[Rfam]
RNA sequence: CCCAGCAAUAAAUUGCUGGGCUAUUUUCAGAUGUCCCUCCGGGGCA
Numbered sequence: 001c002c003c004a005g006c007a008a009u010a011a012a013u014u015g016c017u018g019g020g021c022u023a024u025u026u027u028c029a030g031a032u033g034u035c036c037c038u039c040c041g042g043g044g045c046a
Stems, first nucleotide, its partner, number of pairs: 001020008033045005